[Rfam]
RNA sequence: AUACUUACCUGGCAGGGGAGAUACCGUGAUCACGGGCGGUUCACCCAGGGCUGAGCUCGCCAUUGCACUCCGGCUGUGUUGACCCCUGCGAAUUCCUCAAAUGUGGAAUCUCGACUGCAUAAUUUGCUAGUGGGGGACUGCGUUCGCGCUCUCCCUGA
Dot-bracket structure: ...........(((((((.((.(((((........))))))).)))((((...(((.((((..........)).)).)))...)))).((((((.((.......))))).))).))))............(((((.(..(((....)))..)))))).
RNA: U1 spliceosomal RNA
Organism: Conger conger